[Rfam]
RNA: skipping-rope RNA
RNA sequence: AAGUGUUGAGGUAGAAAGUUCUAUCACGGUGGCUAACGACCAAUAUCGGGAGGUGUGGGGUAUACCGUCCCACCAACACUU
Number, nucleotide and partner (000 for none) at each position: 001a081002a080003g079004u078005g077006u076007u075008g074009a000010g000011g025012u023013a022014g021015a000016a000017a000018g065019u064020u000021c014022u013023a012024u000025c011026a000027c050028g041029g040030u039031g000032g000033c000034u000035a000036a000037c000038g000039a030040c029041c028042a000043a000044u000045a000046u000047c000048g000049g000050g027051a000052g000053g000054u000055g073056u072057g071058g070059g069060g000061u000062a000063u000064a019065c018066c000067g000068u000069c059070c058071c057072a056073c055074c008075a007076a006077c005078a004079c003080u002081u001